[Rfam]
RNA sequence: CACAGCAAAGAUAAAAACGCAACGCAUACAGAGAAGUAUGCCAGAGCCGGUAGGUAGCCCGGCCGUCACAGAAUCUUGUGGUAAGUAACCUUCCCCUCCGGGUUGUCCAUUCUUUGUCCAUAAAGC
Numbered sequence: 001c002a003c004a005g006c007a008a009a010g011a012u013a014a015a016a017a018c019g020c021a022a023c024g025c026a027u028a029c030a031g032a033g034a035a036g037u038a039u040g041c042c043a044g045a046g047c048c049g050g051u052a053g054g055u056a057g058c059c060c061g062g063c064c065g066u067c068a069c070a071g072a073a074u075c076u077u078g079u080g081g082u083a084a085g086u087a088a089c090c091u092u093c094c095c096c097u098c099c100g101g102g103u104u105g106u107c108c109a110u111u112c113u114u115u116g117u118c119c120a121u122a123a124a125g126c
Base pairs, nucleotide, nucleotide: 005117006116007115008114009113010112011111046063047062048061049060050059065082066081067080068079069078070077093102094101095100
Background:
azaaromatic riboswitch aptamer (yjdF RNA): a 126-nucleotide RNA from Oribacterium sinus. The base pairs follow the family's consensus structure, which is taken from published work. The organism belongs to Oribacterium sinus, within Bacteria. The match comes from Rfam's covariance-model search (68 bits).